[Rfam]
Nucleotides: 079
Base pairs, nucleotide, nucleotide: 005024006023007022008021009020010019047073048072049071050070051069052068
Number, partner (000 for none) and nucleotide at each position: 001000g002000u003000c004000a005024u006023g007022g008021g009020g010019a011000c012000c013000g014000c015000g016000a017000u018000c019010u020009c021008c022007c023006c024005a025000c026000g027000a028000g029000g030000c031000g032000a033000c034000a035000u036000g037000c038000c039000c040000a041000a042000g043000c044000a045000u046000c047073g048072c049071a050070u051069c052068c053000g054000c055000a056000c057000c058000a059000g060000a061000c062000a063000c064000u065000c066000a067000c068052g069051g070050a071049u072048g073047c074000a075000u076000c077000a078000u079000g
A member of the RNA family "chrB-a RNA" from Microvirga sp. BSC39, 79 nucleotides long. The source organism's lineage runs through Bacteria, Pseudomonadota, Hyphomicrobiales, Methylobacteriaceae and Microvirga. By type it is a cis-regulatory element. The family has 163 seed sequences and 347 matches in Rfam 15.1.